[Rfam]
RNA sequence: AAACGUGAGGACAAUCUGGCUGUGACAUCCAUCACCCCACUGAUCUCCAGCGUUGAUUCAGCUGAUCAGUGGGCUGAGCAGGUGUCCCCUUUCUCCCUCACCAUUCCAUGUGCGUUCCUCCCAGAACUGCACACCUGGUCAAAGAGGAAGGCCUUUCCUGAUAAAGGAGGACCAUUCUCAGUCAAGGGUAUGUGAGUACCUGUUCUCCCCUGCCAGAAUCUCAAACGAGCUCUCUGUAAAAAUCACAAGAUUUUAUUGUGCAUGGUAGCAUGAGUCUGUAAUCCCAGCUACCAGCUACUCAGGUGGCUGAGGUAGUGGGAU
Numbered sequence: 001a002a003a004c005g006u007g008a009g010g011a012c013a014a015u016c017u018g019g020c021u022g023u024g025a026c027a028u029c030c031a032u033c034a035c036c037c038c039a040c041u042g043a044u045c046u047c048c049a050g051c052g053u054u055g056a057u058u059c060a061g062c063u064g065a066u067c068a069g070u071g072g073g074c075u076g077a078g079c080a081g082g083u084g085u086c087c088c089c090u091u092u093c094u095c096c097c098u099c100a101c102c103a104u105u106c107c108a109u110g111u112g113c114g115u116u117c118c119u120c121c122c123a124g125a126a127c128u129g130c131a132c133a134c135c136u137g138g139u140c141a142a143a144g145a146g147g148a149a150g151g152c153c154u155u156u157c158c159u160g161a162u163a164a165a166g167g168a169g170g171a172c173c174a175u176u177c178u179c180a181g182u183c184a185a186g187g188g189u190a191u192g193u194g195a196g197u198a199c200c201u202g203u204u205c206u207c208c209c210c211u212g213c214c215a216g217a218a219u220c221u222c223a224a225a226c227g228a229g230c231u232c233u234c235u236g237u238a239a240a241a242a243u244c245a246c247a248a249g250a251u252u253u254u255a256u257u258g259u260g261c262a263u264g265g266u267a268g269c270a271u272g273a274g275u276c277u278g279u280a281a282u283c284c285c286a287g288c289u290a291c292c293a294g295c296u297a298c299u300c301a302g303g304u305g306g307c308u309g310a311g312g313u314a315g316u317g318g319g320a321u
Stems, first nucleotide, its partner, number of pairs: 003105001005101006013092002018089002024086006032078001035073002037069001042067004047061001115169005121138004139161003146157003199272001201270001205268002208265002211262003221255001223253001229251001231249001233247001290321001292319001294316005299310004
A member of the RNA family "7SK RNA", 321 nucleotides long.
Rfam 15.1 lists 49,373 matches to the family in 668 species.
Clan: 7SK clan.
The sequence is in the family's curated seed alignment.
7SK was discovered as an abundant small nuclear RNA in the mid-70s but a possible function has only recently been suggested. Two independent studies have found that 7SK RNA binds the CDK9/cyclin T complex (known as elongation factor P-TEFb). P-TEFb activates transcription by phosphorylating the C-terminal domain of RNA polymerase II. This process is negatively regulated by the 7SK RNP. The secondary structure of 7SK RNA shown here was proposed by Wasserman and Steitz on the basis of chemical modification and enzymatic cleavage experiments. This family contains a number of annotated pseudogenes and 7SK derived repeats. The threshold is artificially high to minimise the pseudogene count.